Rfam assigns this 130-nucleotide RNA from Oryza meyeriana to the family "Small nucleolar RNA snoR111". It is annotated as an H/ACA-box small nucleolar RNA. Rfam 15.1 lists 533 matches to the family in 223 species. The source organism's lineage runs through Eukaryota, Viridiplantae, Streptophytina, Embryophyta and Oryza meyeriana. The base pairs follow the family's consensus structure, which was predicted with WAR. Rfam links the family to the GO terms RNA processing and nucleolus.
[Rfam]
RNA sequence: UUGUUAAGUUGGGGGCACCAAUAUCUCCAUGGGGCCACCAUCUUUGCGAGAAGGGGAUAGAUCGACGCGUCAAGAAAUCGUUUCUGUUGCCAUGGCUCCAGUAGGCAAUACGAUUGUUGCUUGCGCACAG
Dot-bracket structure: .....(((.(((..((.................)))..)).)))........................((.(((..((((.....((((((............)))))).)))).....)))..))....
Numbered sequence: 001u002u003g004u005u006a007a008g009u010u011g012g013g014g015g016c017a018c019c020a021a022u023a024u025c026u027c028c029a030u031g032g033g034g035c036c037a038c039c040a041u042c043u044u045u046g047c048g049a050g051a052a053g054g055g056g057a058u059a060g061a062u063c064g065a066c067g068c069g070u071c072a073a074g075a076a077a078u079c080g081u082u083u084c085u086g087u088u089g090c091c092a093u094g095g096c097u098c099c100a101g102u103a104g105g106c107a108a109u110a111c112g113a114u115u116g117u118u119g120c121u122u123g124c125g126c127a128c129a130g
Stems, first nucleotide, its partner, number of pairs: 006044003010040002012036001015035002069126002072122003077114004086109006